[Rfam]
Description:
The record is an 86-nucleotide sequence from Spodoptera littoralis, which matches "mir-283 microRNA precursor family" in Rfam.
RNA sequence: UGAUACGGUUUCCCGGCUAAAUAUCAGCUGGUAAUUCUGGGGUGAUGUCGCCCAGACUACCAGUUGGUAUGAGGCCGGGAAUCGAA
Numbered sequence: 001u002g003a004u005a006c007g008g009u010u011u012c013c014c015g016g017c018u019a020a021a022u023a024u025c026a027g028c029u030g031g032u033a034a035u036u037c038u039g040g041g042g043u044g045a046u047g048u049c050g051c052c053c054a055g056a057c058u059a060c061c062a063g064u065u066g067g068u069a070u071g072a073g074g075c076c077g078g079g080a081a082u083c084g085a086a
Base pairs, nucleotide, nucleotide: 013078014077015076016075017074018073021070022069023068024067025066026065027064028063029062030061031060034058036056037055038054039053040052041051

It scores 50 bits against the family's covariance model.